[Rfam]
RNA: U12 minor spliceosomal RNA
Organism: Strongylocentrotus purpuratus
RNA sequence: AUGCCUUAAACUAAUGAGUAAGGAAAAUAACGAGCCUAGGUAGCCCUAGGUUCCACAGCUAAAUAGUCUGUGAGGAAUUUCUCUUGAGGGAACAGGUAGCCCUUGGGGUGACCCAUCUUACUUUGGUGGGAUGCACCAUGAUUGGCUUAUCUUCCCG
Numbered sequence: 001a002u003g004c005c006u007u008a009a010a011c012u013a014a015u016g017a018g019u020a021a022g023g024a025a026a027a028u029a030a031c032g033a034g035c036c037u038a039g040g041u042a043g044c045c046c047u048a049g050g051u052u053c054c055a056c057a058g059c060u061a062a063a064u065a066g067u068c069u070g071u072g073a074g075g076a077a078u079u080u081c082u083c084u085u086g087a088g089g090g091a092a093c094a095g096g097u098a099g100c101c102c103u104u105g106g107g108g109u110g111a112c113c114c115a116u117c118u119u120a121c122u123u124u125g126g127u128g129g130g131a132u133g134c135a136c137c138a139u140g141a142u143u144g145g146c147u148u149a150u151c152u153u154c155c156c157g
Base pairs, nucleotide, nucleotide: 004023005022006021007020008019032053033052034051035050036049037048038047039046054072055071056070057069058068088156089155090154091153094152095151096150097149098148099147103141104140107137108136109135110134113129114128115127116126117125